[Rfam]
The family of this 69-nucleotide RNA sequence is "tRNA". It is annotated as a transfer RNA.

RNA sequence: AUUCUUUUAGUAUUAACUAGUACAGCUGACUUCCAAUCAGCUAGUUUCGGUCUAGUCCGAAAAAGAAUA
Numbered sequence: 001a002u003u004c005u006u007u008u009a010g011u012a013u014u015a016a017c018u019a020g021u022a023c024a025g026c027u028g029a030c031u032u033c034c035a036a037u038c039a040g041c042u043a044g045u046u047u048c049g050g051u052c053u054a055g056u057c058c059g060a061a062a063a064a065g066a067a068u069a
Stems, first nucleotide, its partner, number of pairs: 001068007010023004025041005046061005
It is one of the family's seed sequences. Its family is annotated with triplet codon-amino acid adaptor activity in the Gene Ontology.